[Rfam]
RNA sequence: AGAAGGGCUUCCUAACGAUGCGUUUGGGGGCCUUUUUCUUUUGC
Numbered sequence: 001a002g003a004a005g006g007g008c009u010u011c012c013u014a015a016c017g018a019u020g021c022g023u024u025u026g027g028g029g030g031c032c033u034u035u036u037u038c039u040u041u042u043g044c
Stems, first nucleotide, its partner, number of pairs: 005033008014024004
RNA: ctRNA
Organism: Aminobacter sp. MSH1